[Rfam]
The record is a 326-nucleotide RNA from Microctonus hyperodae, which matches "RNase MRP" in Rfam. By type it is a ribozyme. The organism belongs to Microctonus, within Eukaryota.
RNA sequence: UUGUUUCCUCGAACCGCACUACGGAGCCACUGUAUACAAUACUCUUGUACAUAGCUCUGAGGAAGGUCCCUGGAUCCCUGGCAGAAAGUGCCAUAGCAUUACUGCUAUUAGCCUCCAUCGUAUUCUCACUUUGGAUAGGACGUCGAUGAGAUAUUGUAUUUUAAUGUCAAUUAAAUUACUUUAUUUCUAUGACUGAUCUGUGAGAUUGAUGUGAGAGUAUUGAUCAAAGUAAAGUAAUGUGUGUAAUUUGUAUUUAAUGUGCAAACAUUGUAAUACAAAUUAAUGAUCCAAGUGAAUAACACAACAGGGCCUAUUCCGAGGAGACU
Dot-bracket structure: ..(((((((((...(((((..((((((.......(((((.....)))))....))))))....[[[.[[[[........((((.....)))).((((......)))).(......(((((...((((....((((.................................(....................)......)))).)))).)))))....)......................)))))..((((((........................................))))))........]]]]]]]....))))))))).
Numbered sequence: 001u002u003g004u005u006u007c008c009u010c011g012a013a014c015c016g017c018a019c020u021a022c023g024g025a026g027c028c029a030c031u032g033u034a035u036a037c038a039a040u041a042c043u044c045u046u047g048u049a050c051a052u053a054g055c056u057c058u059g060a061g062g063a064a065g066g067u068c069c070c071u072g073g074a075u076c077c078c079u080g081g082c083a084g085a086a087a088g089u090g091c092c093a094u095a096g097c098a099u100u101a102c103u104g105c106u107a108u109u110a111g112c113c114u115c116c117a118u119c120g121u122a123u124u125c126u127c128a129c130u131u132u133g134g135a136u137a138g139g140a141c142g143u144c145g146a147u148g149a150g151a152u153a154u155u156g157u158a159u160u161u162u163a164a165u166g167u168c169a170a171u172u173a174a175a176u177u178a179c180u181u182u183a184u185u186u187c188u189a190u191g192a193c194u195g196a197u198c199u200g201u202g203a204g205a206u207u208g209a210u211g212u213g214a215g216a217g218u219a220u221u222g223a224u225c226a227a228a229g230u231a232a233a234g235u236a237a238u239g240u241g242u243g244u245a246a247u248u249u250g251u252a253u254u255u256a257a258u259g260u261g262c263a264a265a266c267a268u269u270g271u272a273a274u275a276c277a278a279a280u281u282a283a284u285g286a287u288c289c290a291a292g293u294g295a296a297u298a299a300c301a302c303a304a305c306a307g308g309g310c311c312u313a314u315u316c317c318g319a320g321g322a323g324a325c326u
Stems, first nucleotide, its partner, number of pairs: 003325009015243005022059006035049005064312003068309004080092004094107004109216001116211005124205004132200004169190001246297006